[Rfam]
RNA sequence: AGUGGCGGAUUUAACCAGCACGGGCGUGGAGAGAUCUCCUCGCCCGUGCACGCAUGUUAAGGGCUGAAAAUUAC
Numbered sequence: 001a002g003u004g005g006c007g008g009a010u011u012u013a014a015c016c017a018g019c020a021c022g023g024g025c026g027u028g029g030a031g032a033g034a035u036c037u038c039c040u041c042g043c044c045c046g047u048g049c050a051c052g053c054a055u056g057u058u059a060a061g062g063g064c065u066g067a068a069a070a071u072u073a074c
Base pairs, nucleotide, nucleotide: 003017004016005015018049019048020047021046022045023044024043025042026041028039029038030037031036
Shown here is a 74-nucleotide RNA sequence from Erwinia sp. Leaf53, a member of the family "tpke11".
The match comes from Rfam's covariance-model search (70 bits).
It is annotated as a small RNA.
In Yersinia located in ICR upstream dnaJ (chaperone)gene. Has temperature responsive RNA structure.